[Rfam]
RNA sequence: GCACAGGGACGACCCUGGGCGCGUCGCGCUUUCCCCUGCUGGGACGACCCAG
Numbered sequence: 001g002c003a004c005a006g007g008g009a010c011g012a013c014c015c016u017g018g019g020c021g022c023g024u025c026g027c028g029c030u031u032u033c034c035c036c037u038g039c040u041g042g043g044a045c046g047a048c049c050c051a052g
Base pairs, nucleotide, nucleotide: 001020002019004017005016006015007014008013039052040051041050042049043048

Shown here is a 52-nucleotide sequence from Paradevosia tibetensis, a member of the family "Guanidine-II riboswitch aptamer (mini-ykkC)". A reference for the family is Weinberg et al. (2007), "Identification of 22 candidate structured RNAs in bacteria using the CMfinder comparative genomics pipeline", Nucleic Acids Res. Gene Ontology term of the family: regulation of gene expression.